[Rfam]
RNA sequence: GCCCGAGUGGUGAAAUUGGCAGACACGCUAGACUAAGGAUCUAGUGAGGAAACUCAUGCAAGUUCGAGUCUUGUCUCGGGCA
Numbered sequence: 001g002c003c004c005g006a007g008u009g010g011u012g013a014a015a016u017u018g019g020c021a022g023a024c025a026c027g028c029u030a031g032a033c034u035a036a037g038g039a040u041c042u043a044g045u046g047a048g049g050a051a052a053c054u055c056a057u058g059c060a061a062g063u064u065c066g067a068g069u070c071u072u073g074u075c076u077c078g079g080g081c082a
Base pairs, nucleotide, nucleotide: 001081002080003079004078005077006076007075010026011025012024028044029043030042031041032040058074059073060072061071062070
This 82-nucleotide RNA from Mycoplasmopsis maculosa belongs to the Rfam family "tRNA". A search with the family's covariance model found it, with a score of 52 bits.